[Rfam]
RNA sequence: ACUUCCAGAGCCGUAACGAAAAGCUGCGUGAAAUUAAGUCAGUCAGGUGAGAUUUUUGCGGGCGUUUGGCUUGUGGCGGUGAUGUUGUGUUUGCAAUUGGUCCGGCAUUUUGCUGACUUGGUAGCAUCGCUACUUUUAUUCUUCAGAUUCACCCUGUCUGUCCACAAAGAUUAUUAGCACCGCAACUGCGGUGCUUUUUUAU
Number, nucleotide and partner (000 for none) at each position: 001a000002c000003u000004u000005c000006c000007a000008g000009a071010g070011c069012c068013g000014u000015a067016a066017c000018g000019a000020a000021a065022a000023g063024c062025u061026g000027c000028g059029u058030g057031a056032a055033a054034u000035u052036a000037a000038g000039u000040c000041a000042g000043u000044c000045a000046g000047g000048u000049g000050a000051g000052a035053u000054u033055u032056u031057u030058g029059c028060g000061g025062g024063c023064g000065u021066u016067u015068g012069g011070c010071u009072u000073g000074u000075g000076g000077c000078g000079g000080u000081g000082a000083u000084g000085u000086u000087g000088u000089g000090u000091u000092u000093g000094c000095a000096a000097u000098u000099g118100g117101u116102c115103c000104g113105g000106c000107a000108u000109u000110u000111u000112g000113c104114u000115g102116a101117c100118u099119u000120g134121g133122u132123a131124g130125c129126a000127u000128c000129g125130c124131u123132a122133c121134u120135u000136u000137u000138a000139u000140u000141c000142u000143u000144c000145a000146g000147a175148u000149u173150c000151a000152c000153c000154c000155u000156g000157u000158c000159u000160g000161u000162c000163c000164a000165c000166a000167a000168a000169g000170a000171u000172u000173a149174u000175u147176a195177g194178c193179a192180c191181c190182g189183c188184a000185a000186c000187u000188g183189c182190g181191g180192u179193g178194c177195u176196u000197u000198u000199u000200u000201a000202u000
RNA: GcvB RNA